[Rfam]
RNA sequence: GGAAUCCAGACUUUCUCCUCCUCCCGAAAGUCUGAGACGUUUCGAAACGAUUCCUCCCCGUUUUGAAACACCCUUAGAAGCCCACCGGAUCUCCUCCCCCGGUGGGCUUUUCUA
Numbered sequence: 001g002g003a004a005u006c007c008a009g010a011c012u013u014u015c016u017c018c019u020c021c022u023c024c025c026g027a028a029a030g031u032c033u034g035a036g037a038c039g040u041u042u043c044g045a046a047a048c049g050a051u052u053c054c055u056c057c058c059c060g061u062u063u064u065g066a067a068a069c070a071c072c073c074u075u076a077g078a079a080g081c082c083c084a085c086c087g088g089a090u091c092u093c094c095u096c097c098c099c100c101g102g103u104g105g106g107c108u109u110u111u112c113u114a
Base pairs, nucleotide, nucleotide: 007034008033009032011030012028013027039069040068041067042066043065044064045063046062047061048060078109079108080107081106082105083104084103085102086101087100088099
Shown here is a 114-nucleotide RNA from Cohaesibacter marisflavi, a member of the family "Alphaproteobacterial ar14". The family has 118 seed sequences and 784 matches in Rfam 15.1. The organism belongs to Cohaesibacter, within Bacteria. About the family: Smr14C2 was renamed NfeR1 (Nodule Formation Efficiency RNA) highly expressed in salt stress and during the symbiotic interaction on legume roots. The match comes from Rfam's covariance-model search (76 bits). Rfam classes the family as a small RNA.